[Rfam]
RNA: MIR2629 microRNA precursor family
RNA sequence: UACGCAAAUGCUCCUCGGCAGUUAACUGCCGAAGUUUUUAGGAAGUCGGCGGCAGUUAACUGCCGAGGAAAAC
Numbered sequence: 001u002a003c004g005c006a007a008a009u010g011c012u013c014c015u016c017g018g019c020a021g022u023u024a025a026c027u028g029c030c031g032a033a034g035u036u037u038u039u040a041g042g043a044a045g046u047c048g049g050c051g052g053c054a055g056u057u058a059a060c061u062g063c064c065g066a067g068g069a070a071a072a073c
Stems, first nucleotide, its partner, number of pairs: 012069002015066017